[Rfam]
RNA sequence: GCGAUGAAUGCCGGUGGAACUACAGCACUAUUAAUGCCCGUGUCGUGGGUUCGAAUCCCGCCGGGGUCCUUCGGGACACCGUAGCUCAGUCUGGUAGAGCAGGAACACGUUUCACCACCCCUUGUCAUCGCUCA
Numbered sequence: 001g002c003g004a005u006g007a008a009u010g011c012c013g014g015u016g017g018a019a020c021u022a023c024a025g026c027a028c029u030a031u032u033a034a035u036g037c038c039c040g041u042g043u044c045g046u047g048g049g050u051u052c053g054a055a056u057c058c059c060g061c062c063g064g065g066g067u068c069c070u071u072c073g074g075g076a077c078a079c080c081g082u083a084g085c086u087c088a089g090u091c092u093g094g095u096a097g098a099g100c101a102g103g104a105a106c107a108c109g110u111u112u113c114a115c116c117a118c119c120c121c122u123u124g125u126c127a128u129c130g131c132u133c134a
Base pairs, nucleotide, nucleotide: 002130003129004128005127006126007125013116014115015114016113017112018111019110038103039102045061046060047059048058049057052094062081063080064079066077067076068075069074084100085099086098087097
This 134-nucleotide RNA sequence from Mitsuaria sp. 7 belongs to the Rfam family "Y RNA-like".
The family's RNA type in Rfam is small RNA.
In Deinococcus radiodurans Rsr is tethered via Y RNA to the exoribonuclease PNPase and channels single-stranded RNA into the PNPase cavity. Rsr and Y RNA enhance degradation of structured RNAs by PNPase. This role could be conserved, as Rsr and ncRNAs called YrlA and YrlB (Y RNA like) also associate with PNPase in an evolutionary distant bacterium Salmonella Typhimurium.